[Rfam]
RNA sequence: CUUGCUUAGUGAAGGCAUGUAGGCUGAAAUGACUCAGAAAGUUGUGUGUUGUUCAUCAGCUUUUUUUUUGUACUCUACGAAUUGGGAGUUAAAUGACAACACUAUAUUU
Numbered sequence: 001c002u003u004g005c006u007u008a009g010u011g012a013a014g015g016c017a018u019g020u021a022g023g024c025u026g027a028a029a030u031g032a033c034u035c036a037g038a039a040a041g042u043u044g045u046g047u048g049u050u051g052u053u054c055a056u057c058a059g060c061u062u063u064u065u066u067u068u069u070g071u072a073c074u075c076u077a078c079g080a081a082u083u084g085g086g087a088g089u090u091a092a093a094u095g096a097c098a099a100c101a102c103u104a105u106a107u108u109u
Stems, first nucleotide, its partner, number of pairs: 046102006058090006066081003
RNA: Small nucleolar RNA snoR97